Shown here is a 129-nucleotide RNA from Cephalotus follicularis, a member of the family "Small nucleolar RNA snoR74". The source organism's lineage runs through Eukaryota, Gunneridae, fabids, Oxalidales and Cephalotus. Rfam 15.1 lists 1,404 matches to the family in 223 species. The family's RNA type in Rfam is H/ACA-box small nucleolar RNA.
RNA sequence: AAAAAAGCAGGGCCUUAUUGCCUUCCGUGAAUUUGGCGCUCGUAAGCUGCAGGAAAAUUGCUUUCAUUGUUUUUGGGUGAACCUCUGUAGUGGCUAGUGACUUAAGGUUCAGUAAAUGAUGGCACAUUU
Dot-bracket structure: .....((....(.(..(..............)..).).........))................(((((((......(((((((....................)))))))...)))))))........